[Rfam]
Nucleotides: 080
Base pairs, nucleotide, nucleotide: 002080003079005077006076
Number, partner (000 for none) and nucleotide at each position: 001000a002080u003079g004000a005077c006076a007000a008000a009000u010000u011000c012000u013000c014000c015000g016000g017000a018000a019000u020000c021000u022000c023000u024000g025000u026000a027000c028000a029000u030000g031000u032000u033000u034000g035000a036000u037000g038000a039000u040000u041000c042000u043000c044000c045000u046000u047000g048000a049000a050000c051000c052000c053000u054000u055000u056000g057000u058000g059000c060000u061000g062000a063000u064000g065000a066000c067000u068000g069000c070000u071000g072000c073000g074000c075000u076006u077005g078000a079003c080002a
The family of this 80-nucleotide RNA from Hemibagrus wyckioides is "Small nucleolar RNA MBII-202".
Rfam classes the family as a C/D-box small nucleolar RNA.
Pairs were carried over by alignment from the consensus structure, which was predicted with PFOLD.
Taxonomically the source falls in Hemibagrus (Eukaryota, Metazoa, Euteleostomi, Siluroidei).
A reference for the family is Huttenhofer et al. (2001), "RNomics: an experimental approach that identifies 201 candidates for novel, small, non-messenger RNAs in mouse", EMBO J.